[Rfam]
RNA: mir-988 microRNA precursor family
RNA sequence: CCGCUGCGGGUGUGUGCUUUGUGACAACGAGAUUCAGCUUUGAAAUCAUCCCCUUGUUGCAAACCUCACGCUUGCGGUGG
Numbered sequence: 001c002c003g004c005u006g007c008g009g010g011u012g013u014g015u016g017c018u019u020u021g022u023g024a025c026a027a028c029g030a031g032a033u034u035c036a037g038c039u040u041u042g043a044a045a046u047c048a049u050c051c052c053c054u055u056g057u058u059g060c061a062a063a064c065c066u067c068a069c070g071c072u073u074g075c076g077g078u079g080g
Stems, first nucleotide, its partner, number of pairs: 002079006009072006016065001018063010029052001031050003
Dot-bracket structure: .((((((.((((((.(.((((((((((.(.(((..............))).).)))))))))).).)))))).)))))).